The record is a 116-nucleotide RNA sequence from Hevea brasiliensis, which matches "mir-393 microRNA precursor family" in Rfam. The family has 27 seed sequences and 1,052 matches in Rfam 15.1. The base pairs follow the family's consensus structure. The organism belongs to Hevea, within Eukaryota. A search with the family's covariance model found it, with a score of 93 bits. For this family Rfam cites "Role of microRNAs and other sRNAs of plants in their changing environments" (Kruszka et al., J Plant Physiol, 2012).
RNA sequence: GGUGGAGAGUUCCAAAGGGAUCGCAUUGAUCUGAUGAUGUCUACUGAUGCGCCUAAAAUGACCGUUAAUUAUCAUUUUUAUUCAUUGGAUCAUGCGAUCCCUUAGGAAUUUUCCAC
Numbered sequence: 001g002g003u004g005g006a007g008a009g010u011u012c013c014a015a016a017g018g019g020a021u022c023g024c025a026u027u028g029a030u031c032u033g034a035u036g037a038u039g040u041c042u043a044c045u046g047a048u049g050c051g052c053c054u055a056a057a058a059u060g061a062c063c064g065u066u067a068a069u070u071a072u073c074a075u076u077u078u079u080a081u082u083c084a085u086u087g088g089a090u091c092a093u094g095c096g097a098u099c100c101c102u103u104a105g106g107a108a109u110u111u112u113c114c115a116c
Base pairs, nucleotide, nucleotide: 002116003115004114005113006112008110009109010108011107012106013105015103016102017101018100019099020098021097023095024094025093026092028091029090030089031088032087036083